[Rfam]
RNA: RNase MRP
RNA sequence: GGUGAUGGGAAGUGUAACACUCGCAGUGACGCACCGGUUUCGUAGAUGACCGUAUUCAUUUCUAAUGAAGUAAUGACUGUGAGCGAAAGUCCCUGAACCUUGAGACUGAGAGAGCUCCACCCGUAACUUGGGUGUACUCGGAUAUCCAACCUGGAUGGCGUUUGGGCCAGGAGACCAUGAACGGUUGAGCCUAGGAUGGCCAUCGGUUGACCUCCGGGGUUCGUUGCAAGCAAAGUAACGUUACAUUGUCAAACAGCACAGGGCUUACUCUCCUCAUGUCAC
Numbered sequence: 001g002g003u004g005a006u007g008g009g010a011a012g013u014g015u016a017a018c019a020c021u022c023g024c025a026g027u028g029a030c031g032c033a034c035c036g037g038u039u040u041c042g043u044a045g046a047u048g049a050c051c052g053u054a055u056u057c058a059u060u061u062c063u064a065a066u067g068a069a070g071u072a073a074u075g076a077c078u079g080u081g082a083g084c085g086a087a088a089g090u091c092c093c094u095g096a097a098c099c100u101u102g103a104g105a106c107u108g109a110g111a112g113a114g115c116u117c118c119a120c121c122c123g124u125a126a127c128u129u130g131g132g133u134g135u136a137c138u139c140g141g142a143u144a145u146c147c148a149a150c151c152u153g154g155a156u157g158g159c160g161u162u163u164g165g166g167c168c169a170g171g172a173g174a175c176c177a178u179g180a181a182c183g184g185u186u187g188a189g190c191c192u193a194g195g196a197u198g199g200c201c202a203u204c205g206g207u208u209g210a211c212c213u214c215c216g217g218g219g220u221u222c223g224u225u226g227c228a229a230g231c232a233a234a235g236u237a238a239c240g241u242u243a244c245a246u247u248g249u250c251a252a253a254c255a256g257c258a259c260a261g262g263g264c265u266u267a268c269u270c271u272c273c274u275c276a277u278g279u280c281a282c
Base pairs, nucleotide, nucleotide: 002282003281004280005279006278007275008273009272010271013245014244015243016242017241018240021083022081023080024079025078026077027076087266088265089264091263092262093261094260103116104115106114107113118134119133120132121131122130137218138217139216147209148208149207150206151205156202157201158200159199164192165191166190167189174185175184176183